[Rfam]
RNA sequence: GUGGCCGUGGAGUCCCAGAUGGCGUCGCCGUCCAGGAGGGCCUGCUCACCGAAGUGGCCGCCGUCGGCGACGAUGUUGACGGGGACGUCGCUGCCGUACUUGCCCUCGGCGGUCUGGCUGAUCCGGCCGUGGGCGACGAGGUGGAUGCGUUCGGCGGGGGUGCCGCGCUCGACCAGCACCUCUCCGGCGCGGAAGUCGCGCUGGACGCAGCGGUCGGCGAUGGCCUUCAGCGCCUCGACGUCGUCGAAGCCGCGCAGCAGGGCGAGUUCGCCCAGUUCGCGAGGGACCACCCGGACGUCGGCGCCGUCCUGGACGAACUCGAUGCACCCGUCGCCGACGGUGUAGGUCAGUCGGCGGUUCACCCGGUAGGCGCCGCCCUUCGCCUCGACCCAGGGCAGCAUCCGCAGCAGCCAGCGGGAGGUGAUCUCCUGCAUCUGCGGCGCGGACUUGGUCGUGGUGGCGAGAUUGCGGGCAGCCGCGGUGCUCAGGCUGGUCUGCGGGGAGGUGG
Numbered sequence: 001g002u003g004g005c006c007g008u009g010g011a012g013u014c015c016c017a018g019a020u021g022g023c024g025u026c027g028c029c030g031u032c033c034a035g036g037a038g039g040g041c042c043u044g045c046u047c048a049c050c051g052a053a054g055u056g057g058c059c060g061c062c063g064u065c066g067g068c069g070a071c072g073a074u075g076u077u078g079a080c081g082g083g084g085a086c087g088u089c090g091c092u093g094c095c096g097u098a099c100u101u102g103c104c105c106u107c108g109g110c111g112g113u114c115u116g117g118c119u120g121a122u123c124c125g126g127c128c129g130u131g132g133g134c135g136a137c138g139a140g141g142u143g144g145a146u147g148c149g150u151u152c153g154g155c156g157g158g159g160g161u162g163c164c165g166c167g168c169u170c171g172a173c174c175a176g177c178a179c180c181u182c183u184c185c186g187g188c189g190c191g192g193a194a195g196u197c198g199c200g201c202u203g204g205a206c207g208c209a210g211c212g213g214u215c216g217g218c219g220a221u222g223g224c225c226u227u228c229a230g231c232g233c234c235u236c237g238a239c240g241u242c243g244u245c246g247a248a249g250c251c252g253c254g255c256a257g258c259a260g261g262g263c264g265a266g267u268u269c270g271c272c273c274a275g276u277u278c279g280c281g282a283g284g285g286a287c288c289a290c291c292c293g294g295a296c297g298u299c300g301g302c303g304c305c306g307u308c309c310u311g312g313a314c315g316a317a318c319u320c321g322a323u324g325c326a327c328c329c330g331u332c333g334c335c336g337a338c339g340g341u342g343u344a345g346g347u348c349a350g351u352c353g354g355c356g357g358u359u360c361a362c363c364c365g366g367u368a369g370g371c372g373c374c375g376c377c378c379u380u381c382g383c384c385u386c387g388a389c390c391c392a393g394g395g396c397a398g399c400a401u402c403c404g405c406a407g408c409a410g411c412c413a414g415c416g417g418g419a420g421g422u423g424a425u426c427u428c429c430u431g432c433a434u435c436u437g438c439g440g441c442g443c444g445g446a447c448u449u450g451g452u453c454g455u456g457g458u459g460g461c462g463a464g465a466u467u468g469c470g471g472g473c474a475g476c477c478g479c480g481g482u483g484c485u486c487a488g489g490c491u492g493g494u495c496u497g498c499g500g501g502g503a504g505g506u507g508g
Stems, first nucleotide, its partner, number of pairs: 007389002010386003014382001018328001021325001025322003031316002038310003042306001047303001049301004054233002057227001060224005068111002071108001078103001080102004085097003089093001117218004122213002130209001132206001134204001135202001137198003142195001148191002153188001155186005161178002165174001235295002240290002243287003251281004256277003260271001262269001329342004353377005360372001362370002391431005397425001399423003403418001405416001407415001437476002440473001443470002446467001448464002451461002477507002484499001486497003
Dot-bracket structure: ......((.(((.(...(..(...(((...((.....(((.(....(.((((.((.(..(((((...((.(......(.((((.(((.(...).))).)))))....).)).....((((.((......(.(.((.(((..(.....((...(.(((((.((..(........)..))...))))).).))...))))...).).)..)..)).)))).)))))..)....)).((...((.(((.....((((.(((.(.(......).)...)))))))...))).))...))..)))).)..).)))....))...)))..)..)((((......))))..........(((((..(.((.....)).))))))....).))).)).(((((.(.(((.(.(.(.......)).)..))).).))))).....((.(..((.(.((.((.......)).))..).))..).))((.....(.(((......))).)......)).
Annotation
This 508-nucleotide RNA from Streptomyces benahoarensis belongs to the Rfam family "Saccharopolyspora sRNA 350". A reference for the family is Liu et al. (2013), "Prediction and characterization of small non-coding RNAs related to secondary metabolites in Saccharopolyspora erythraea", PLoS One. The family has 2 seed sequences and 1,170 matches in Rfam 15.1. A search with the family's covariance model found it, with a score of 114 bits.